[Rfam]
RNA sequence: CUAACUUAUGAAGAAGGGAUGAUGGGUGGCCGAUGAAAAACUAAUCUUAUGUUCCAAAGUCUGAAAUCGAAACAUUUCAUGCUUACGAAUCUAGGAUUAGUCUGCCCAUUUUCCAUAGCGACAGGAGCUGUUCCCACGGGAAGGCUUUGUUUGUUGUUGUUUUCGUGCGGCUAAUCCUUCCAGGAAUCUGGGAGGAUUUUUUG
Numbered sequence: 001c002u003a004a005c006u007u008a009u010g011a012a013g014a015a016g017g018g019a020u021g022a023u024g025g026g027u028g029g030c031c032g033a034u035g036a037a038a039a040a041c042u043a044a045u046c047u048u049a050u051g052u053u054c055c056a057a058a059g060u061c062u063g064a065a066a067u068c069g070a071a072a073c074a075u076u077u078c079a080u081g082c083u084u085a086c087g088a089a090u091c092u093a094g095g096a097u098u099a100g101u102c103u104g105c106c107c108a109u110u111u112u113c114c115a116u117a118g119c120g121a122c123a124g125g126a127g128c129u130g131u132u133c134c135c136a137c138g139g140g141a142a143g144g145c146u147u148u149g150u151u152u153g154u155u156g157u158u159g160u161u162u163u164c165g166u167g168c169g170g171c172u173a174a175u176c177c178u179u180c181c182a183g184g185a186a187u188c189u190g191g192g193a194g195g196a197u198u199u200u201u202u203g
Base pairs, nucleotide, nucleotide: 016114017113018112019111023108024107025106026105029102031100042099043098044097045096046095047094048093049092051090052089053088054087059082060081062079063078064077065076066075067074122153123152124151127145128144129143131141132140133139173198174197175196176195177194178193179192180191181190182189183188
Dot-bracket structure: ...............((((...((((..(.(..........((((((((.((((....((.((((((......)))))).))....)))).))))))))).)..))))..)))).......(((..(((.(((.....))).))).....)))...................(((((((((((....))))))))))).....

Notes:
This 203-nucleotide sequence from Halobacillus sp. BAB-2008 belongs to the Rfam family "Bacillus sRNA ncr1575". It scores 123 bits against the family's covariance model. The source organism's lineage runs through Bacteria, Bacillota, Bacilli, Bacillaceae and Halobacillus. Pairs were carried over by alignment from the consensus structure, which is taken from published work.